RNA sequence: CACGUCAGCGCACUUUGCUGACAUGGCAACAAAUCGCGCUUUCAAGGCCGCGCUUUGUUGCCACGUCAGCAUAGCGCGCUAACGUGG
Number, nucleotide and partner (000 for none) at each position: 001c086002a085003c084004g083005u082006c000007a080008g079009c078010g077011c076012a000013c074014u073015u000016u071017g070018c069019u068020g067021a066022c000023a000024u063025g062026g061027c060028a059029a058030c057031a056032a055033a054034u000035c052036g051037c050038g049039c000040u047041u046042u000043c000044a000045a000046g041047g040048c000049c038050g037051c036052g035053c000054u033055u032056u031057g030058u029059u028060g027061c026062c025063a024064c000065g000066u021067c020068a019069g018070c017071a016072u000073a014074g013075c000076g011077c010078g009079c008080u007081a000082a005083c004084g003085u002086g001087g000

This 87-nucleotide RNA sequence from Gossypium lobatum belongs to the Rfam family "MIR7486 microRNA precursor family". NCBI's taxonomy places the organism under Eukaryota, Gunneridae, Pentapetalae, Malvaceae, Gossypium. The family's consensus secondary structure was predicted with RNAalifold. Rfam 15.1 lists 10,132 matches to the family in 36 species. The match comes from Rfam's covariance-model search (79 bits).